[Rfam]
RNA sequence: GAGUUGUCGUUAACGGUGGGUUAAGGCCUUCAGGGCUGGAGCCAUAGGGAAACCAAGUCUGAAUAGGGCGCGAUAUCGUUGAUGGCAGACGCGAAACUGCGUGAUCUACCCAUGAGCAGGUUGAAUCGCGGGUAAAACCGCGUGGAGGACCGAACCCGUCUGGGUUGAAAACCGGUGGGAUGACUUGUGGGGAGGAGUGAAAGUCUAAUCAAACGCAGAGAUAGCUCGUU
Numbered sequence: 001g002a003g004u005u006g007u008c009g010u011u012a013a014c015g016g017u018g019g020g021u022u023a024a025g026g027c028c029u030u031c032a033g034g035g036c037u038g039g040a041g042c043c044a045u046a047g048g049g050a051a052a053c054c055a056a057g058u059c060u061g062a063a064u065a066g067g068g069c070g071c072g073a074u075a076u077c078g079u080u081g082a083u084g085g086c087a088g089a090c091g092c093g094a095a096a097c098u099g100c101g102u103g104a105u106c107u108a109c110c111c112a113u114g115a116g117c118a119g120g121u122u123g124a125a126u127c128g129c130g131g132g133u134a135a136a137a138c139c140g141c142g143u144g145g146a147g148g149a150c151c152g153a154a155c156c157c158g159u160c161u162g163g164g165u166u167g168a169a170a171a172c173c174g175g176u177g178g179g180a181u182g183a184c185u186u187g188u189g190g191g192g193a194g195g196a197g198u199g200a201a202a203g204u205c206u207a208a209u210c211a212a213a214c215g216c217a218g219a220g221a222u223a224g225c226u227c228g229u230u
Base pairs, nucleotide, nucleotide: 005087006086007085008084009083010082011081012080013079014078015077016076017075019043020042021041022040025037026036027035047054048053057069058068059067060066090228091227093225097218098217099216100215101214102213106194107193109191110190111189112188113187114186115185116184117182119151120150121149122148127142128141129140130139131138155179156178157177160175161174162173163172196206197205

Rfam assigns this 230-nucleotide part of an RNA from planctomycete str. 670 to the family "Bacterial large subunit ribosomal RNA". Rfam's curators put it in the seed alignment.